RNA sequence: ACGCUCCGGUUUCUCUUCAGAUCGUAUAAAUCUUUCGCCUUUUACUAAAGAUUUCCGUGGAGAGAAAUACUCACGAGUGAUUGAGAAUUUUUUGAGGCUUUGCUGUGGCAGAGCU
Dot-bracket structure: ..((((..(((((((((((........((((((((...........))))))))...)))))))))))......))))................(.((((((......)))))))
Shown here is a 115-nucleotide RNA from Irena cyanogastra, a member of the family "U5 spliceosomal RNA". The family's RNA type in Rfam is spliceosomal small nuclear RNA. Taxonomically the source falls in Irena (Eukaryota, Metazoa, Deuterostomia, Coelurosauria).